[Rfam]
RNA sequence: UACUAGCAAACCCUAUUUCCACCUCCACGUGGUGAUCGCUGGGAGUUCUUUCUUAAUGAAAAACUGCAGAAGGAGGAGG
Numbered sequence: 001u002a003c004u005a006g007c008a009a010a011c012c013c014u015a016u017u018u019c020c021a022c023c024u025c026c027a028c029g030u031g032g033u034g035a036u037c038g039c040u041g042g043g044a045g046u047u048c049u050u051u052c053u054u055a056a057u058g059a060a061a062a063a064c065u066g067c068a069g070a071a072g073g074a075g076g077a078g079g
Base pairs, nucleotide, nucleotide: 012079013078014077016075017074018073019072021033022032023031044065045064046063047062049060050059052058